A member of the RNA family "glmS glucosamine-6-phosphate activated ribozyme aptamer" from Evansella caseinilytica, 172 nucleotides long. Rfam classes the family as a riboswitch. This entry contains a glucosamine-6-phosphate activated ribozyme that is found in the mRNA for GlmS. GlmS is an enzyme that uses fructose-6-phosphate and glutamine to generate glucosamine-6-phosphate. A search with the family's covariance model found it, with a score of 119 bits.
Nucleotides: 172
Stems, first nucleotide, its partner, number of pairs: 020050008029041001059091005068080004092111006118160005130147007
Number, partner (000 for none) and nucleotide at each position: 001000u002000u003000u004000u005000u006000u007000u008000u009000a010000a011000a012000a013000g014000c015000g016000c017000c018000u019000g020050g021049a022048c023047u024046a025045u026044c027043c028000a029041u030000g031000u032000g033000a034000u035000c036000g037000a038000a039000a040000a041029a042000a043027g044026g045025a046024u047023a048022g049021u050020u051000g052000a053000c054000g055000a056000g057000g058000a059091g060090g061089a062088g063087g064000a065000g066000u067000a068080u069079c070078g071077a072000a073000a074000g075000a076000u077071u078070c079069g080068g081000c082000g083000g084000a085000u086000a087063c088062c089061u090060c091059c092111c093110g094109g095108u096107u097106g098000u099000c100000u101000c102000a103000u104000c105000a106097c107096a108095a109094c110093c111092g112000c113000a114000a115000g116000c117000a118160a119159a120158u121157u122156a123000c124000u125000g126000a127000a128000a129000a130147c131146g132145g133144a134143a135142a136141g137000g138000c139000g140000a141136c142135u143134u144133u145132c146131u147130g148000a149000a150000c151000a152000a153000a154000a155000g156122u157121g158120a159119u160118u161000g162000c163000a164000a165000u166000g167000a168000u169000g170000a171000u172000a